The record is a 197-nucleotide sequence from Taxus chinensis, which matches "U2 spliceosomal RNA" in Rfam.
RNA sequence: UCACCUUUCUUGGCCUUUUGGCUAAGAUCAAAUGUAGUAUCUGGUCUUAUCAGUUUAAUAUCUGAUACGUGGUUCAAUGAACCACACGAUAUUAAAUUAAUUUCUUUAGGGGGAGGGUUCAACACAGGUAGCUUGCUAUCAGAACCCUCGAGCGUCGCUUCUGUAUUGCACUACUUCAGAAGCCUGGCGCUCCCCAC
Numbered sequence: 001u002c003a004c005c006u007u008u009c010u011u012g013g014c015c016u017u018u019u020g021g022c023u024a025a026g027a028u029c030a031a032a033u034g035u036a037g038u039a040u041c042u043g044g045u046c047u048u049a050u051c052a053g054u055u056u057a058a059u060a061u062c063u064g065a066u067a068c069g070u071g072g073u074u075c076a077a078u079g080a081a082c083c084a085c086a087c088g089a090u091a092u093u094a095a096a097u098u099a100a101u102u103u104c105u106u107u108a109g110g111g112g113g114a115g116g117g118u119u120c121a122a123c124a125c126a127g128g129u130a131g132c133u134u135g136c137u138a139u140c141a142g143a144a145c146c147c148u149c150g151a152g153c154g155u156c157g158c159u160u161c162u163g164u165a166u167u168g169c170a171c172u173a174c175u176u177c178a179g180a181a182g183c184c185u186g187g188c189g190c191u192c193c194c195c196a197c
Base pairs, nucleotide, nucleotide: 008027009026010025012023013022014021015020048067049066050065051064052063053062069085070084071083072082073081074080075079113149114148115147116146117145118144119143120142128139129138130137131136152190153189154188155187156186157185159181160180161179162178163177
It scores 159 bits against the family's covariance model. About the family: U2 is a small nuclear RNA (snRNA) component of the spliceosome (involved in pre-mRNA splicing). Complementary binding between U2 snRNA (in an area lying towards the 5' end but 3' to hairpin I) and the branchpoint sequence (BPS) of the intron results the bulging out of an unpaired adenosine, on the BPS, which initiates a nucleophilic attack at the intronic 5' splice site, thus starting the first of two transesterification reactions that mediate splicing. The source organism's lineage runs through Eukaryota, Tracheophyta, Spermatophyta, Acrogymnospermae and Taxus. For this family Rfam cites "The uRNA database" (Zwieb, Nucleic Acids Res, 1997). The family's RNA type in Rfam is spliceosomal small nuclear RNA. The family's consensus secondary structure is taken from published work.